Background
Rfam assigns this 95-nucleotide sequence from Perca flavescens to the family "mir-217 microRNA precursor family". On this family, see Lim et al., Science 2003: "Vertebrate microRNA genes". A search with the family's covariance model found it, with a score of 81 bits. Taxonomically the source falls in Perca (Eukaryota, Bilateria, Clupeocephala, Acanthomorphata).
RNA sequence: GGUUUCCAGAUGUUGGUGAUACUGCAUCAGGAACUGAUCGGUGAGAGCGAUGACAGGCCGUCAGUUCCUAAUGCGCUGCCCUCAGCAUCUAAAGA
Numbered sequence: 001g002g003u004u005u006c007c008a009g010a011u012g013u014u015g016g017u018g019a020u021a022c023u024g025c026a027u028c029a030g031g032a033a034c035u036g037a038u039c040g041g042u043g044a045g046a047g048c049g050a051u052g053a054c055a056g057g058c059c060g061u062c063a064g065u066u067c068c069u070a071a072u073g074c075g076c077u078g079c080c081c082u083c084a085g086c087a088u089c090u091a092a093a094g095a
Base pairs, nucleotide, nucleotide: 023075024074025073026072027071029069030068031067032066033065034064035063036062037061039060040059041058